RNA sequence: GUAAUAUAAGAACCGUCUCUUAACUUUUAACUAAGAAAAACUAAGAGCCGAUUUUUAAAUAAGAUAUUUAAGAGUCUGUUCUUAGCUUUUCUUAGUUAAAAGUUAAGAGACGGUUCUUAUAUUAG
Number, nucleotide and partner (000 for none) at each position: 001g000002u124003a123004a122005u121006a120007u119008a118009a117010g116011a115012a114013c113014c112015g111016u110017c109018u108019c107020u106021u105022a104023a103024c102025u101026u100027u099028u098029a097030a096031c095032u094033a093034a092035g091036a090037a089038a088039a000040a000041c085042u084043a083044a082045g081046a080047g079048c000049c000050g000051a000052u000053u000054u000055u000056u000057a000058a000059a000060u000061a000062a000063g000064a000065u000066a000067u000068u000069u000070a000071a000072g000073a000074g000075u000076c000077u000078g000079u047080u046081c045082u044083u043084a042085g041086c000087u000088u038089u037090u036091c035092u034093u033094a032095g031096u030097u029098a028099a027100a026101a025102g024103u023104u022105a021106a020107g019108a018109g017110a016111c015112g014113g013114u012115u011116c010117u009118u008119a007120u006121a005122u004123u003124a002125g000
RNA: MIR9563 microRNA precursor family